[Rfam]
RNA sequence: AUUGCUUUUUGGCCUUUUGGCUAAAAUAAAUGUAGCAUCUAAUUUUAUCAGUUUAACAUCUGAUAUGUCUUCUAUCCAUGUACAAUAUUUUAAAUGGAUUUUUUGGAGCGGGGAGAUGGAACAGGAGUUUCCCCCACCCAUUCCACACAUCAGCCUGGUAAUGCAGUAACUGCAGGAAUAGUUCACCUCUG
Numbered sequence: 001a002u003u004g005c006u007u008u009u010u011g012g013c014c015u016u017u018u019g020g021c022u023a024a025a026a027u028a029a030a031u032g033u034a035g036c037a038u039c040u041a042a043u044u045u046u047a048u049c050a051g052u053u054u055a056a057c058a059u060c061u062g063a064u065a066u067g068u069c070u071u072c073u074a075u076c077c078a079u080g081u082a083c084a085a086u087a088u089u090u091u092a093a094a095u096g097g098a099u100u101u102u103u104u105g106g107a108g109c110g111g112g113g114a115g116a117u118g119g120a121a122c123a124g125g126a127g128u129u130u131c132c133c134c135c136a137c138c139c140a141u142u143c144c145a146c147a148c149a150u151c152a153g154c155c156u157g158g159u160a161a162u163g164c165a166g167u168a169a170c171u172g173c174a175g176g177a178a179u180a181g182u183u184c185a186c187c188u189c190u191g
Stems, first nucleotide, its partner, number of pairs: 007026003011022004046065006067083002070080001112144004118138002124135002127132001149182002152179001154176004
Annotation:
A member of the RNA family "U2 spliceosomal RNA" from Nomascus leucogenys, 191 nucleotides long. Pairs were carried over by alignment from the consensus structure, which is taken from published work. Rfam's curators write: U2 is a small nuclear RNA (snRNA) component of the spliceosome (involved in pre-mRNA splicing). The family's RNA type in Rfam is spliceosomal small nuclear RNA. The family has 208 seed sequences and 71,512 matches in Rfam 15.1.